RNA sequence: GCCGCUUCUCUGCCUUUUGGCUAAGAUCGAGUGUAGUAUCUGUUCUUAUCAGUUUAAUAUCUGAUACGUCCCCUAUCUGGGGACCAUAUGAUUUUUGGAACAGGGAGAUGGAAUAGGGGCCUGCUCCAUCCACUACCUGCAUCAACCUGGUAUUGCAGUACUUCCAGGCGGAGUGGUGGCUCU
Dot-bracket structure: ......(((..(((....)))..)))....................((((((........)))))).((((((.....))))))...................(.((..((....((((....)))).))..)).)...(((...(((((.............)))))....)))........
Numbered sequence: 001g002c003c004g005c006u007u008c009u010c011u012g013c014c015u016u017u018u019g020g021c022u023a024a025g026a027u028c029g030a031g032u033g034u035a036g037u038a039u040c041u042g043u044u045c046u047u048a049u050c051a052g053u054u055u056a057a058u059a060u061c062u063g064a065u066a067c068g069u070c071c072c073c074u075a076u077c078u079g080g081g082g083a084c085c086a087u088a089u090g091a092u093u094u095u096u097g098g099a100a101c102a103g104g105g106a107g108a109u110g111g112a113a114u115a116g117g118g119g120c121c122u123g124c125u126c127c128a129u130c131c132a133c134u135a136c137c138u139g140c141a142u143c144a145a146c147c148u149g150g151u152a153u154u155g156c157a158g159u160a161c162u163u164c165c166a167g168g169c170g171g172a173g174u175g176g177u178g179g180c181u182c183u
Stems, first nucleotide, its partner, number of pairs: 007026003012021003047066006068084006104136001106134002110130002116127004140175003146168005